Shown here is a 139-nucleotide sequence from Olea europaea, a member of the family "small nucleolar RNA snoR137". The family's consensus secondary structure was predicted with RNAalifold. The match comes from Rfam's covariance-model search (102 bits). The literature on the family includes a 2009 paper in Nucleic Acids Res by Chen and Wu, "Mining small RNA sequencing data: a new approach to identify small nucleolar RNAs in Arabidopsis". The family's RNA type in Rfam is H/ACA-box small nucleolar RNA. The source organism's lineage runs through Eukaryota, Mesangiospermae, eudicotyledons, Gunneridae and Olea europaea.
RNA sequence: GUUGCUUCUUAAUGGUGAACUCUUUUCUUGAUUGUAAUAGGAGAGUUCAAGUUUCCCGAAGCAUAUAUGAAAUUGACAGUUUUAAACAGCUCGAUGUUCUUAAUGUAUGGCAUCGUGUUACCUGUCUGCUGCUACAUUU
Numbered sequence: 001g002u003u004g005c006u007u008c009u010u011a012a013u014g015g016u017g018a019a020c021u022c023u024u025u026u027c028u029u030g031a032u033u034g035u036a037a038u039a040g041g042a043g044a045g046u047u048c049a050a051g052u053u054u055c056c057c058g059a060a061g062c063a064u065a066u067a068u069g070a071a072a073u074u075g076a077c078a079g080u081u082u083u084a085a086a087c088a089g090c091u092c093g094a095u096g097u098u099c100u101u102a103a104u105g106u107a108u109g110g111c112a113u114c115g116u117g118u119u120a121c122c123u124g125u126c127u128g129c130u131g132c133u134a135c136a137u138u139u
Stems, first nucleotide, its partner, number of pairs: 003063006016049010075133001077131004088119003092115005